This 85-nucleotide sequence belongs to the Rfam family "RAGATH-18 RNA". About the family: Actinobacteria, Firmicutes, Fusobacteria, Thermotogae (1 example).
RNA sequence: UCUGUGGAUCGUUAUAUUAAAUGAAAGUAGUUAGUAACAAUGAGUAAUUGUUGUUAGAACGAAAUCAGACGGGGUGAAGCAGAAA
Numbered sequence: 001u002c003u004g005u006g007g008a009u010c011g012u013u014a015u016a017u018u019a020a021a022u023g024a025a026a027g028u029a030g031u032u033a034g035u036a037a038c039a040a041u042g043a044g045u046a047a048u049u050g051u052u053g054u055u056a057g058a059a060c061g062a063a064a065u066c067a068g069a070c071g072g073g074g075u076g077a078a079g080c081a082g083a084a085a
Stems, first nucleotide, its partner, number of pairs: 001083005009072005022067003030060003033055009